RNA sequence: CCGCACUAGUCGGGGAGAUAGCGGUGCCCUGUACCUGCAAUCCGCUACAGCAGGGAUGAAUCCCGGCCCCCGGAUUUUCGUUGUGUCGUCUGACCCUGGUAAGCAGCGAUGAUGGACCGGCCCCGCGCAACGGGGUCCCGUGAACCGUGUCAGGCGGGGAACCGAGCAGCACUAAGCGGAUCGCUCCGUGUGCCGUGGGACAACCGUUCCUGAGCCGGCUGCCUGGGUAACGGGCAUAACGAAAACUUCAAAGGCCGGUGUGCGG
Numbered sequence: 001c002c003g004c005a006c007u008a009g010u011c012g013g014g015g016a017g018a019u020a021g022c023g024g025u026g027c028c029c030u031g032u033a034c035c036u037g038c039a040a041u042c043c044g045c046u047a048c049a050g051c052a053g054g055g056a057u058g059a060a061u062c063c064c065g066g067c068c069c070c071c072g073g074a075u076u077u078u079c080g081u082u083g084u085g086u087c088g089u090c091u092g093a094c095c096c097u098g099g100u101a102a103g104c105a106g107c108g109a110u111g112a113u114g115g116a117c118c119g120g121c122c123c124c125g126c127g128c129a130a131c132g133g134g135g136u137c138c139c140g141u142g143a144a145c146c147g148u149g150u151c152a153g154g155c156g157g158g159g160a161a162c163c164g165a166g167c168a169g170c171a172c173u174a175a176g177c178g179g180a181u182c183g184c185u186c187c188g189u190g191u192g193c194c195g196u197g198g199g200a201c202a203a204c205c206g207u208u209c210c211u212g213a214g215c216c217g218g219c220u221g222c223c224u225g226g227g228u229a230a231c232g233g234g235c236a237u238a239a240c241g242a243a244a245a246c247u248u249c250a251a252a253g254g255c256c257g258g259u260g261u262g263c264g265g
Base pairs, nucleotide, nucleotide: 001265002264003263004262005261006260009057010056011055012030013029014028015027017025019023034054035053036052037051038050063258064257065256066255067254068253072249073248074247076245078242079241080240081239082238083237084236085235086234087233091229092228095226096225098223099222100221103219104218106215107214114210115209116208118206119205120204122199123198124197125196126195127194128190129189131188132187133186134185135184138179139178140177141176147172148171149170150169155164156163157162
Rfam assigns this 265-nucleotide RNA from Flavonifractor sp. An135 to the family "Bacterial large signal recognition particle RNA". A search with the family's covariance model found it, with a score of 197 bits. By type it is a non-coding RNA gene. Rfam describes the family as follows. The signal recognition particle (SRP) is a universally conserved ribonucleoprotein involved in the co-translational targeting of proteins to membranes.